Record summary
The record is a 79-nucleotide RNA from Chiloscyllium punctatum, which matches "mir-499 microRNA precursor family" in Rfam. The family's consensus secondary structure was predicted with RNAalifold. Its family is annotated with miRNA-mediated post-transcriptional gene silencing and RISC complex in the Gene Ontology.
RNA sequence: GAGAUGAAGGUAGUUAAGACUUGCAGUGAUGUUUAGCUAAUUUAUGAAUGAACAUCACUUUAAGUCUGUGCUAUCUUUC
Numbered sequence: 001g002a003g004a005u006g007a008a009g010g011u012a013g014u015u016a017a018g019a020c021u022u023g024c025a026g027u028g029a030u031g032u033u034u035a036g037c038u039a040a041u042u043u044a045u046g047a048a049u050g051a052a053c054a055u056c057a058c059u060u061u062a063a064g065u066c067u068g069u070g071c072u073a074u075c076u077u078u079c
Stems, first nucleotide, its partner, number of pairs: 017067007026058010
It scores 80 bits against the family's covariance model.